[Rfam]
RNA sequence: UCGGCGGCCCAAAGGGAGCCGAAGAGCCGGGGCAGCGGGAGUUCCGCGCCCCUUCCAUGUUGCUUUACGGAGGAUAUGGUAAUGAGAG
Numbered sequence: 001u002c003g004g005c006g007g008c009c010c011a012a013a014g015g016g017a018g019c020c021g022a023a024g025a026g027c028c029g030g031g032g033c034a035g036c037g038g039g040a041g042u043u044c045c046g047c048g049c050c051c052c053u054u055c056c057a058u059g060u061u062g063c064u065u066u067a068c069g070g071a072g073g074a075u076a077u078g079g080u081a082a083u084g085a086g087a088g
Stems, first nucleotide, its partner, number of pairs: 001022005008016002029052005035047004053085001055079007063072003
Shown here is an 88-nucleotide RNA from Endobacterium cereale, a member of the family "Repression of heat shock gene expression (ROSE) element". Rfam's curators write: This family represents a 5' UTR cis-regulatory element found in heat shock mRNAs and is known as the ROSE (repression of heat shock gene expression) element. The ROSE element is a negative regulator of heat shock gene expression. The secondary structure is thought to be regulated by temperature. This regulation blocks access to the ribosome binding site under normal conditions. A search with the family's covariance model found it, with a score of 46 bits. The literature on the family includes a 2001 paper in Nucleic Acids Res by Nocker et al., "A mRNA-based thermosensor controls expression of rhizobial heat shock genes". The source organism's lineage runs through Bacteria, Pseudomonadati, Alphaproteobacteria, Hyphomicrobiales and Endobacterium.